[Rfam]
Nucleotides: 534
Base pairs, nucleotide, nucleotide: 007527008526009525010524011523012522013521014520015519016518022512023476024475027447028446029444030443031442032441033440034439035437036436045106046105047104048061049060050059067100068099069098070097071096072095076088077087078086111119112118113117127141128140129139130138131137148179149177150176151175152174153173159166160165189198190197202229203228204227205226206225212220213219232430233429234428235427240263241262242261245256246255247254248253273368274367275366276365283361284360285359286358297346298345299344303319305318306317307316308315322326328340329339330338380401381400382399383398384397385396386395408424409423410422411421412420463470464469
Number, partner (000 for none) and nucleotide at each position: 001000c002000u003000a004000c005000u006000a007527u008526g009525c010524c011523a012522u013521c014520c015519g016518g017000u018000g019000g020000a021000u022512a023476g024475c025000u026000c027447g028446g029444c030443u031442c032441g033440a034439g035437a036436g037000c038000c039000g040000a041000c042000g043000a044000a045106g046105g047104g048061c049060g050059u051000g052000c053000c054000a055000a056000g057000c058000u059050g060049c061048g062000a063000u064000a065000a066000g067100c068099u069098c070097g071096g072095g073000g074000g075000a076088c077087c078086c079000g080000c081000a082000c083000g084000g085000a086078g087077g088076g089000g090000a091000a092000g093000a094000a095072c096071c097070c098069g099068a100067g101000a102000u103000a104047c105046c106045c107000g108000a109000a110000u111119a112118g113117g114000a115000a116000u117113c118112c119111u120000c121000a122000u123000c124000g125000c126000a127141a128140u129139u130138g131137c132000u133000u134000u135000g136000c137131g138130c139129a140128a141127u142000g143000g144000g145000g146000a147000a148179c149177g150176c151175c152174g153173u154000g155000a156000a157000c158000u159166g160165a161000a162000a163000c164000a165160u166159c167000u168000c169000a170000g171000u172000a173153a174152c175151g176150g177149c178000a179148g180000g181000a182000a183000g184000a185000g186000a187000a188000a189198u190197c191000a192000a193000u194000u195000a196000c197190g198189a199000g200000a201000c202229g203228u204227c205226g206225u207000u208000a209000g210000u211000a212220a213219u214000c215000g216000c217000g218000a219213g220212u221000g222000a223000a224000c225206g226205c227204g228203a229202c230000a231000c232430a233429g234428c235427c236000c237000a238000a239000a240263c241262c242261g243000a244000a245256g246255c247254c248253c249000u250000c251000a252000c253248g254247g255246g256245c257000a258000a259000u260000g261242u262241g263240g264000u265000g266000u267000u268000g269000g270000g271000u272000c273368u274367g275366a276365c277000u278000c279000u280000c281000a282000u283361c284360g285359u286358c287000a288000g289000a290000a291000a292000c293000g294000g295000u296000u297346c298345g299344u300000g301000a302000a303319g304000u305318c306317u307316c308315c309000u310000g311000g312000a313000a314000c315308g316307g317306a318305g319303c320000a321000c322326g323000a324000u325000a326322c327000a328340g329339g330338g331000u332000g333000a334000a335000a336000g337000u338330c339329c340328c341000g342000u343000a344299a345298c346297g347000a348000g349000c350000u351000c352000g353000a354000g355000u356000a357000c358286g359285a360284c361283g362000u363000g364000c365276g366275u367274c368273a369000g370000c371000a372000c373000c374000a375000g376000a377000g378000u379000a380401g381400c382399g383398g384397g385396g386395g387000u388000u389000g390000g391000a392000u393000a394000u395386c396385c397384c398383u399382c400381g401380c402000c403000a404000a405000u406000a407000u408424c409423c410422c411421a412420g413000g414000c415000a416000u417000c418000g419000a420412c421411u422410g423409g424408g425000a426000a427235g428234g429233c430232u431000a432000a433000g434000u435000a436036c437035u438000c439034c440033u441032c442031g443030a444029g445000a446028c447027c448000g449000a450000u451000a452000g453000c454000g455000g456000a457000c458000a459000a460000g461000u462000a463470g464469c465000g466000u467000g468000a469464g470463c471000g472000a473000a474000c475024g476023c477000u478000g479000a480000a481000a482000a483000g484000c485000a486000c487000c488000c489000c490000a491000a492000g493000a494000a495000g496000g497000g498000a499000g500000g501000u502000g503000c504000a505000a506000u507000a508000g509000g510000c511000c512022u513000u514000g515000a516000a517000a518016u519015u520014g521013g522012a523011u524010g525009g526008c527007g528000a529000u530000g531000g532000a533000g534000c